[Rfam]
RNA: Eukaryotic small subunit ribosomal RNA, nucleotides 1637 to 1794
RNA sequence: CCGCCCGUCGCUCCUACCGAUUGAGUGUUCCGGUGAAUUAUUCGGACCGUUUUGUGGCGCGUUCGUGCCCGAAAUGGGAAGUUUUGUGAACCUUAACACUUAGAGGAAGGAGAAGUCGUAACAAGGUUUCCGUAGGUGAACCUGCGGAAGGAUCAUUC
Numbered sequence: 001c002c003g004c005c006c007g008u009c010g011c012u013c014c015u016a017c018c019g020a021u022u023g024a025g026u027g028u029u030c031c032g033g034u035g036a037a038u039u040a041u042u043c044g045g046a047c048c049g050u051u052u053u054g055u056g057g058c059g060c061g062u063u064c065g066u067g068c069c070c071g072a073a074a075u076g077g078g079a080a081g082u083u084u085u086g087u088g089a090a091c092c093u094u095a096a097c098a099c100u101u102a103g104a105g106g107a108a109g110g111a112g113a114a115g116u117c118g119u120a121a122c123a124a125g126g127u128u129u130c131c132g133u134a135g136g137u138g139a140a141c142c143u144g145c146g147g148a149a150g151g152a153u154c155a156u157u158c
Stems, first nucleotide, its partner, number of pairs: 001125001003122001006118002009115001011112005017106002021102001023101007032092003037087002040084001043081001047077008056068001127150010